Rfam assigns this 105-nucleotide RNA sequence from Sporosarcina sp. JAI121 to the family "SAM riboswitch aptamer (S box leader)".
[Rfam]
RNA sequence: UUCUUAUCGAGAGAAGUCGAGGGACUGGCCCUAUGACGCUUCAGCAACCAGCCUUUUGGUCAGGUGCUAAAUCCAGCAGGCGAGAGAUGUCCUGAGAGAUGAAGA
Numbered sequence: 001u002u003c004u005u006a007u008c009g010a011g012a013g014a015a016g017u018c019g020a021g022g023g024a025c026u027g028g029c030c031c032u033a034u035g036a037c038g039c040u041u042c043a044g045c046a047a048c049c050a051g052c053c054u055u056u057u058g059g060u061c062a063g064g065u066g067c068u069a070a071a072u073c074c075a076g077c078a079g080g081c082g083a084g085a086g087a088u089g090u091c092c093u094g095a096g097a098g099a100u101g102a103a104g105a
Stems, first nucleotide, its partner, number of pairs: 001105002004102005013042005021031003025076004043068004048064002051060003072097001077094004
Gene Ontology term of the family: regulation of gene expression. Taxonomically the source falls in Sporosarcina (Bacteria, Bacillota, Bacilli, Caryophanales). It scores 80 bits against the family's covariance model.